The record is an 85-nucleotide sequence from Providencia heimbachae, which matches "RpsF leader" in Rfam.
From the family's description: Conserved and widely distributed to many bacterial species RNA structure. It precedes operon containing rpsF, which encodes ribosomal protein S6. The motif also precedes operon containing rpsR, which encodes ribosomal protein S18.
It is annotated as a cis-regulatory leader.
It scores 75 bits against the family's covariance model.
NCBI's taxonomy places the organism under Bacteria, Pseudomonadati, Pseudomonadota, Enterobacterales, Providencia heimbachae.
RNA sequence: GCCGCACUCAAUAAGUUCCUUGCCUCCGCGGGCCGCGGUUAACCCUGACAGGAGGCUAAUAAUCCGUAAGGAGCAACUACUCAUG
Numbered sequence: 001g002c003c004g005c006a007c008u009c010a011a012u013a014a015g016u017u018c019c020u021u022g023c024c025u026c027c028g029c030g031g032g033c034c035g036c037g038g039u040u041a042a043c044c045c046u047g048a049c050a051g052g053a054g055g056c057u058a059a060u061a062a063u064c065c066g067u068a069a070g071g072a073g074c075a076a077c078u079a080c081u082c083a084u085g
Base pairs, nucleotide, nucleotide: 015074016073017072018071019070020069021068022056023055024054025053026052027051030045031044032043